[Rfam]
RNA sequence: UUGCCUAUUUUGGCACUAGCACAUUUUUGCUUCUGUGUAUAUCAGUCAGGCAAUUAUGUGUAGUGCCAAUAUAGGACG
Number, nucleotide and partner (000 for none) at each position: 001u000002u000003g000004c075005c074006u073007a072008u071009u000010u069011u068012g067013g066014c065015a064016c063017u062018a000019g061020c060021a059022c058023a057024u056025u000026u000027u053028u052029g051030c050031u049032u048033c000034u000035g000036u000037g000038u000039a000040u000041a000042u000043c000044a000045g000046u000047c000048a032049g031050g030051c029052a028053a027054u000055u000056a024057u023058g022059u021060g020061u019062a017063g016064u015065g014066c013067c012068a011069a010070u000071a008072u007073a006074g005075g004076a000077c000078g000